[Rfam]
RNA sequence: AACUCCGGUACAAGUGACGCCUUUUCCCAAGAACCACGACGGUGAAAGAACCCCCACCAAGCCCCACCCCACCCUCCCGCCGACCGAGUCCGCGAAUCACCCAUGUGGGUGAACAUGGCCAACUCGGCUGGAUUCCGGGCAGGUUGCGUGAUCUACGCUCAGCGCAAACAACUCCAGACAUACGACGGCCCUCGCCGGGACUGGCAUCCCAAGGCGAGGGCCUGACCACCAAGGAAGAGAACAGCUUCCCG
Numbered sequence: 001a002a003c004u005c006c007g008g009u010a011c012a013a014g015u016g017a018c019g020c021c022u023u024u025u026c027c028c029a030a031g032a033a034c035c036a037c038g039a040c041g042g043u044g045a046a047a048g049a050a051c052c053c054c055c056a057c058c059a060a061g062c063c064c065c066a067c068c069c070c071a072c073c074c075u076c077c078c079g080c081c082g083a084c085c086g087a088g089u090c091c092g093c094g095a096a097u098c099a100c101c102c103a104u105g106u107g108g109g110u111g112a113a114c115a116u117g118g119c120c121a122a123c124u125c126g127g128c129u130g131g132a133u134u135c136c137g138g139g140c141a142g143g144u145u146g147c148g149u150g151a152u153c154u155a156c157g158c159u160c161a162g163c164g165c166a167a168a169c170a171a172c173u174c175c176a177g178a179c180a181u182a183c184g185a186c187g188g189c190c191c192u193c194g195c196c197g198g199g200a201c202u203g204g205c206a207u208c209c210c211a212a213g214g215c216g217a218g219g220g221c222c223u224g225a226c227c228a229c230c231a232a233g234g235a236a237g238a239g240a241a242c243a244g245c246u247u248c249c250c251g
Stems, first nucleotide, its partner, number of pairs: 007230003016084001018082002097112006127163005187222005193216003197210004233249005
Shown here is a 251-nucleotide RNA from Streptomyces sp. 3213.3, a member of the family "Streptomyces sRNA 4677". The literature on the family includes a 2014 paper in PLoS One by Hindra et al., "Complex intra-operonic dynamics mediated by a small RNA in Streptomyces coelicolor". Located in the intergenic region between anti-sigma factor SCO4677 gene and a putative regulatory protein gene SCO4676. scr4677 expression requires the SCO4677 activity and scr4677 sRNA itself seem to affect the levels of the SCO4676-associated transcripts. Taxonomically the source falls in Streptomyces (Bacteria, Bacillati, Actinomycetota, Kitasatosporales).